A member of the RNA family "Iron response element I" from Cervus elaphus, 35 nucleotides long. Lineage of the source: Eukaryota > Metazoa > Ruminantia > Cervinae > Cervus elaphus.
RNA sequence: UUGUCUCUUGCUUCAAUAGUGCUUGGACAGAACAG
Numbered sequence: 001u002u003g004u005c006u007c008u009u010g011c012u013u014c015a016a017u018a019g020u021g022c023u024u025g026g027a028c029a030g031a032a033c034a035g
Stems, first nucleotide, its partner, number of pairs: 001035004006031003010028001012027005017021001
Annotation
Its family is annotated with response to iron ion in the Gene Ontology. It scores 40 bits against the family's covariance model. On this family, see Walden et al., Science 2006: "Structure of dual function iron regulatory protein 1 complexed with ferritin IRE-RNA".